[Rfam]
RNA sequence: AGGGGGAGGCCAGAUACUGGGCUGUGUCCACGGCUCCCUGUACUCCUGGGCCUGUGCUCUUUUAUUUGCCUCCCAGCGGGGUAGCCCCCU
Numbered sequence: 001a002g003g004g005g006g007a008g009g010c011c012a013g014a015u016a017c018u019g020g021g022c023u024g025u026g027u028c029c030a031c032g033g034c035u036c037c038c039u040g041u042a043c044u045c046c047u048g049g050g051c052c053u054g055u056g057c058u059c060u061u062u063u064a065u066u067u068g069c070c071u072c073c074c075a076g077c078g079g080g081g082u083a084g085c086c087c088c089c090u
Stems, first nucleotide, its partner, number of pairs: 001090006009082002011079001013077001017076001019074003024069003027064001030062001032058003036054001040052001043050002
The family of this 90-nucleotide RNA from Vulpes vulpes is "mir-8799 microRNA precursor family". Its Rfam clan is "mir-8791 microRNA precursor clan". The family's consensus secondary structure was predicted with RNAalifold. Taxonomically the source falls in Vulpes (Eukaryota, Chordata, Mammalia, Eutheria).